[Rfam]
RNA sequence: GGGCGAAUAGCUCAGCUGGUUAGAGUGUCGGCCUCACAUGCCGAAGGUCACAGGUUCGAACCCUGUUUCGCCCA
Numbered sequence: 001g002g003g004c005g006a007a008u009a010g011c012u013c014a015g016c017u018g019g020u021u022a023g024a025g026u027g028u029c030g031g032c033c034u035c036a037c038a039u040g041c042c043g044a045a046g047g048u049c050a051c052a053g054g055u056u057c058g059a060a061c062c063c064u065g066u067u068u069c070g071c072c073c074a
Stems, first nucleotide, its partner, number of pairs: 001073007010026004028044005050066005
The record is a 74-nucleotide sequence from Desulfobulbus oralis, which matches "tRNA" in Rfam. A search with the family's covariance model found it, with a score of 72 bits. Rfam links the family to the GO term triplet codon-amino acid adaptor activity. The base pairs follow the family's consensus structure, which is taken from published work.